[Rfam]
A member of the RNA family "Plastid-clpP 5UTR RNA" from Primula poissonii, 70 nucleotides long.
Rfam's curators write: Plastid clpP is a non-coding RNA (ncRNA) recognised in plastids. It was found in the prime untranslated region (5UTR) of a protease complex subunit (clpP) in plastids, suggesting a posible cis-regulatory function.
It is annotated as a cis-regulatory element.

RNA sequence: CAAUUAUGUUCGUAGGAACAAGGCGAAGCAGAUUUAUUCUAUACUCAAUAAGUACUAAUACGCAAUGGGG
Numbered sequence: 001c002a003a004u005u006a007u008g009u010u011c012g013u014a015g016g017a018a019c020a021a022g023g024c025g026a027a028g029c030a031g032a033u034u035u036a037u038u039c040u041a042u043a044c045u046c047a048a049u050a051a052g053u054a055c056u057a058a059u060a061c062g063c064a065a066u067g068g069g070g
Stems, first nucleotide, its partner, number of pairs: 004023002007020005044069003052061003